The family of this 104-nucleotide RNA sequence from Clostridium cellulovorans is "SAM riboswitch aptamer (S box leader)". Lineage of the source: Bacteria > Clostridia > Clostridiaceae > Clostridium > Clostridium cellulovorans.
RNA sequence: ACGUCAUCAAGAGAGGUGGAGGGAUUAGGCCCUGUGAAGCCUCGGCAACCUGCAAAUGAGUGCAAGGUGCUAAUUCCUGCGGACAAGCGUCUGGGAGAUGAGGU
Numbered sequence: 001a002c003g004u005c006a007u008c009a010a011g012a013g014a015g016g017u018g019g020a021g022g023g024a025u026u027a028g029g030c031c032c033u034g035u036g037a038a039g040c041c042u043c044g045g046c047a048a049c050c051u052g053c054a055a056a057u058g059a060g061u062g063c064a065a066g067g068u069g070c071u072a073a074u075u076c077c078u079g080c081g082g083a084c085a086a087g088c089g090u091c092u093g094g095g096a097g098a099u100g101a102g103g104u
Base pairs, nucleotide, nucleotide: 001104002103004101005100006099007098008097013043014042015041016040017039021032022031023030026079027078028077029076044071045070046069047068049067050066051064052063053062054061075096080093081092082091083090084089
It scores 85 bits against the family's covariance model. About the family: The SAM riboswitch is found upstream of a number of genes which code for proteins involved in methionine or cysteine biosynthesis in Gram-positive bacteria. Its family is annotated with regulation of gene expression in the Gene Ontology.